Shown here is a 113-nucleotide sequence from a Mycobacteriaceae bacterium, a member of the family "Glycine riboswitch aptamer". This family represents the bacterial glycine riboswitch. For this family Rfam cites "In Vivo Behavior of the Tandem Glycine Riboswitch in Bacillus subtilis" (Babina et al., MBio, 2017).
[Rfam]
RNA sequence: CCCGACGCCUCUGGAAAGCGGUGGCCGCCGCACCCAUAGCGGCCGCCCGCCCACGGGGAAAGGCCUGCUCAGGCGGCGCCGAAUCUCUCAGGCACCACGACAGAGGGGGAGGG
Number, nucleotide and partner (000 for none) at each position: 001c000002c000003c000004g000005a000006c108007g000008c106009c105010u104011c103012u102013g101014g000015a000016a000017a000018g000019c000020g047021g046022u045023g044024g043025c042026c041027g040028c039029c000030g000031c000032a000033c000034c000035c000036a000037u000038a000039g028040c027041g026042g025043c024044c023045g022046c021047c020048c000049g093050c092051c091052c000053a088054c000055g000056g087057g086058g085059a000060a000061a000062g080063g079064c000065c000066u000067g000068c000069u000070c000071a000072g000073g000074c000075g000076g000077c000078g000079c063080c062081g000082a000083a000084u000085c058086u057087c056088u053089c000090a000091g051092g050093c049094a000095c000096c000097a000098c000099g000100a000101c013102a012103g011104a010105g009106g008107g000108g006109g000110a000111g000112g000113g000